[Rfam]
RNA sequence: CUCUUAUCGAGAGUGGCGGAGGGACUGGCCCGAUGAAGCCCGGCAACCGGCUUGCCCCCCGUGGGCAGGCAGCGGUGCCAAUUCCUGCAGAGGGAACCCCUCUGAGAGAUGAGAG
Numbered sequence: 001c002u003c004u005u006a007u008c009g010a011g012a013g014u015g016g017c018g019g020a021g022g023g024a025c026u027g028g029c030c031c032g033a034u035g036a037a038g039c040c041c042g043g044c045a046a047c048c049g050g051c052u053u054g055c056c057c058c059c060c061g062u063g064g065g066c067a068g069g070c071a072g073c074g075g076u077g078c079c080a081a082u083u084c085c086u087g088c089a090g091a092g093g094g095a096a097c098c099c100c101u102c103u104g105a106g107a108g109a110u111g112a113g114a115g
Stems, first nucleotide, its partner, number of pairs: 001115008013041001015040003021031003025087001027085002042079004047075002050070007083107001088104006
RNA: SAM riboswitch aptamer (S box leader)
Organism: Calditerricola satsumensis